[Rfam]
The family of this 250-nucleotide RNA sequence from Amycolatopsis keratiniphila is "Actinobacteria sRNA Ms_IGR-5". A reference for the family is Li et al. (2013), "Identification of small RNAs in Mycobacterium smegmatis using heterologous Hfq", RNA. It is annotated as a small RNA.
RNA sequence: ACACGAGAGAGGAGGUGGUCCAAAGUUGUAUUCCAACAGGACUCGUGAGGUGGCUGUCCGCUAGCGGACCCCACGCGUAGGACUUCAGAGCAGCGAUACAACGCAAGUUGGAGCCACCUUCGGCUCGUCGUCUCUGCUUCGCGUGAUGCCUGCUAGCGAAUACCAGGCAGUCACCGGGCCCCCGAGGUUCCCGAGCACCGGUCCGGCUCGGGCCCGGACGCCGAUUCCCGGCGUCCGGGAGCCGCCUCGG
Numbered sequence: 001a002c003a004c005g006a007g008a009g010a011g012g013a014g015g016u017g018g019u020c021c022a023a024a025g026u027u028g029u030a031u032u033c034c035a036a037c038a039g040g041a042c043u044c045g046u047g048a049g050g051u052g053g054c055u056g057u058c059c060g061c062u063a064g065c066g067g068a069c070c071c072c073a074c075g076c077g078u079a080g081g082a083c084u085u086c087a088g089a090g091c092a093g094c095g096a097u098a099c100a101a102c103g104c105a106a107g108u109u110g111g112a113g114c115c116a117c118c119u120u121c122g123g124c125u126c127g128u129c130g131u132c133u134c135u136g137c138u139u140c141g142c143g144u145g146a147u148g149c150c151u152g153c154u155a156g157c158g159a160a161u162a163c164c165a166g167g168c169a170g171u172c173a174c175c176g177g178g179c180c181c182c183c184g185a186g187g188u189u190c191c192c193g194a195g196c197a198c199c200g201g202u203c204c205g206g207c208u209c210g211g212g213c214c215c216g217g218a219c220g221c222c223g224a225u226u227c228c229c230g231g232c233g234u235c236c237g238g239g240a241g242c243c244g245c246c247u248c249g250g
Base pairs, nucleotide, nucleotide: 014058015057016056017055018054019053059158060157061156062155063154064153065152067150069148072145073144074143075142076141077140182250183249184248185247186246187245188244190239191238192237193236